[Rfam]
RNA sequence: CGGCCCCUUUUGGCACUAGCACAUUUUUGCUUUGGUCCGUAGCGUUGGAGCAAUUAUGUGUAGUGCCAAGAUGGGAGG
Numbered sequence: 001c002g003g004c005c006c007c008u009u010u011u012g013g014c015a016c017u018a019g020c021a022c023a024u025u026u027u028u029g030c031u032u033u034g035g036u037c038c039g040u041a042g043c044g045u046u047g048g049a050g051c052a053a054u055u056a057u058g059u060g061u062a063g064u065g066c067c068a069a070g071a072u073g074g075g076a077g078g
Stems, first nucleotide, its partner, number of pairs: 004075003008071001010069008019061006027053006